The family of this 63-nucleotide RNA sequence from Ochotona princeps is "Small nucleolar RNA SNORD58". Rfam classes the family as a C/D-box small nucleolar RNA. Rfam describes the family as follows. snoRNA U58 is found in introns 1, 3 and 6 of the ribosomal protein RPL17 gene in humans.
[Rfam]
RNA sequence: UUGCAGUGAUGACAUCUUAGGACACCUUUGGAAUAGCCGUGAAAGCAAACUCUGCUGAGCAAC
Numbered sequence: 001u002u003g004c005a006g007u008g009a010u011g012a013c014a015u016c017u018u019a020g021g022a023c024a025c026c027u028u029u030g031g032a033a034u035a036g037c038c039g040u041g042a043a044a045g046c047a048a049a050c051u052c053u054g055c056u057g058a059g060c061a062a063c
Stems, first nucleotide, its partner, number of pairs: 001062004

The family's consensus secondary structure was predicted with PFOLD.
A reference for the family is Galardi et al. (2002), "Purified box C/D snoRNPs are able to reproduce site-specific 2'-O-methylation of target RNA in vitro", Mol Cell Biol.